RNA sequence: GCCAGGGUUCUAUUCACAACGGAUCGUCCGGCACGUACCUGCCGGUGAAGGAAAUAUCA
Numbered sequence: 001g002c003c004a005g006g007g008u009u010c011u012a013u014u015c016a017c018a019a020c021g022g023a024u025c026g027u028c029c030g031g032c033a034c035g036u037a038c039c040u041g042c043c044g045g046u047g048a049a050g051g052a053a054a055u056a057u058c059a
Stems, first nucleotide, its partner, number of pairs: 010051002013049004028045006
Dot-bracket structure: .........((.((((...........((((((......))))))))))))........
RNA: msiK RNA